[Rfam]
RNA sequence: GAGGUCAAGUUUGGGGCCACGGCAGAGGUGCUUGCUGUGCAGCCCUGUCAGAUUCCAGCGAAUCUGUGAUUUCUGUU
Numbered sequence: 001g002a003g004g005u006c007a008a009g010u011u012u013g014g015g016g017c018c019a020c021g022g023c024a025g026a027g028g029u030g031c032u033u034g035c036u037g038u039g040c041a042g043c044c045c046u047g048u049c050a051g052a053u054u055c056c057a058g059c060g061a062a063u064c065u066g067u068g069a070u071u072u073c074u075g076u077u
Base pairs, nucleotide, nucleotide: 014045015044016043017042021077022076023075024074025073026072027071028040029039030038049066050065051064052063053062054061055060
Mammalian CPEB3 ribozyme: a 77-nucleotide RNA from Alligator sinensis. Lineage of the source: Eukaryota > Gnathostomata > Archosauria > Crocodylia > Alligator.